Shown here is a 482-nucleotide RNA from Hymenobacter montanus, a member of the family "Bacterial RNase P class A".
RNA sequence: GUGAUGGGUCGCCCCACCGCGGCGCCAGACGCAAGGAUGGCGACGAGGAAAGUCCGGGCAACGCAGAGCACCCUGCUUCCUAACGGGAAGGACUGGCGCGCGUAAUGCAACCCAGGACAGCCAGUGCCACAGAAAAUUACCGCCCGGCGGUAGUCGUCAGCUGCUCAUUAUCAGUUGUUAGCUCAGGCUGGCGAACUGGCAAUGGGUACUUAAAAGCUGACCACUAGGCCGGGUAAGGGUGAAAAGGUGCGGUAAGAGCGCACCAGCGGGCGGGUGACCGUCCCGGCUGGGUAAACCUCAGGGGUUGAAAGACCAAAUAAGCUGGUACGCCGGCUCAGCCUGCGGGCCGGGCCGGCACCGGGCGGCUCGUCCGGCGCCAGCGGGUAGGUUGAUGGAGCCUUUCCGCGAGGACUGGCCUAGAUAAAUGGUGGGGACGCGCCCCCAGGCGCGGACAAAACCCGGCUUACAGACCCAUCACCUCG
Numbered sequence: 001g002u003g004a005u006g007g008g009u010c011g012c013c014c015c016a017c018c019g020c021g022g023c024g025c026c027a028g029a030c031g032c033a034a035g036g037a038u039g040g041c042g043a044c045g046a047g048g049a050a051a052g053u054c055c056g057g058g059c060a061a062c063g064c065a066g067a068g069c070a071c072c073c074u075g076c077u078u079c080c081u082a083a084c085g086g087g088a089a090g091g092a093c094u095g096g097c098g099c100g101c102g103u104a105a106u107g108c109a110a111c112c113c114a115g116g117a118c119a120g121c122c123a124g125u126g127c128c129a130c131a132g133a134a135a136a137u138u139a140c141c142g143c144c145c146g147g148c149g150g151u152a153g154u155c156g157u158c159a160g161c162u163g164c165u166c167a168u169u170a171u172c173a174g175u176u177g178u179u180a181g182c183u184c185a186g187g188c189u190g191g192c193g194a195a196c197u198g199g200c201a202a203u204g205g206g207u208a209c210u211u212a213a214a215a216g217c218u219g220a221c222c223a224c225u226a227g228g229c230c231g232g233g234u235a236a237g238g239g240u241g242a243a244a245a246g247g248u249g250c251g252g253u254a255a256g257a258g259c260g261c262a263c264c265a266g267c268g269g270g271c272g273g274g275u276g277a278c279c280g281u282c283c284c285g286g287c288u289g290g291g292u293a294a295a296c297c298u299c300a301g302g303g304g305u306u307g308a309a310a311g312a313c314c315a316a317a318u319a320a321g322c323u324g325g326u327a328c329g330c331c332g333g334c335u336c337a338g339c340c341u342g343c344g345g346g347c348c349g350g351g352c353c354g355g356c357a358c359c360g361g362g363c364g365g366c367u368c369g370u371c372c373g374g375c376g377c378c379a380g381c382g383g384g385u386a387g388g389u390u391g392a393u394g395g396a397g398c399c400u401u402u403c404c405g406c407g408a409g410g411a412c413u414g415g416c417c418u419a420g421a422u423a424a425a426u427g428g429u430g431g432g433g434a435c436g437c438g439c440c441c442c443c444a445g446g447c448g449c450g451g452a453c454a455a456a457a458c459c460c461g462g463c464u465u466a467c468a469g470a471c472c473c474a475u476c477a478c479c480u481c482g
Stems, first nucleotide, its partner, number of pairs: 001478010011467001012433007020045002023042005050465003054462005059307004066368004071303005076090005091118001093115003119298002124296002126292003140238002142234007246264006266287001267285004271280003311390004321381006359373005397416003402411003
Dot-bracket structure: ((((((((((((((((((.((.(((((..........))))).))....[[[.[[[[[((((...[[[[.((((((((((.....)))))(.(((.................)))..)((...(((((...........(((((((((...............................................................................)))))))..)).......((((((.......)))))).((((((((....))).)))).)..)))..)))))))))))))...((((......((((((................................(((((.]]]])))))..)))))).....))))......(((..(((....)))..)))..........)))))))........................]]]]]]]].).))))))))))....
The family's consensus secondary structure is taken from published work. It scores 237 bits against the family's covariance model.